The record is a 114-nucleotide sequence, which matches "TPP riboswitch aptamer (THI element)" in Rfam. Pairs were carried over by alignment from the consensus structure, which is taken from published work.
[Rfam]
RNA sequence: CGCAAUUCUGGCGGGAGCUUGGGUAAACCAGGCUGAGAGGGCGGCCAAAUUCGUCGCCGACCGUCUGUACCGGAUCCGGGUAAUGCCGGCGCAGGAACAGUUGGUAGAGCUUUG
Numbered sequence: 001c002g003c004a005a006u007u008c009u010g011g012c013g014g015g016a017g018c019u020u021g022g023g024u025a026a027a028c029c030a031g032g033c034u035g036a037g038a039g040g041g042c043g044g045c046c047a048a049a050u051u052c053g054u055c056g057c058c059g060a061c062c063g064u065c066u067g068u069a070c071c072g073g074a075u076c077c078g079g080g081u082a083a084u085g086c087c088g089g090c091g092c093a094g095g096a097a098c099a100g101u102u103g104g105u106a107g108a109g110c111u112u113u114g
Stems, first nucleotide, its partner, number of pairs: 008100003011064004017033005040058005070095002073092001076089004
From the family's description: Vitamin B(1) in its active form thiamin pyrophosphate (TPP) is an essential coenzyme that is synthesised by coupling of pyrimidine and thiazole moieties in bacteria.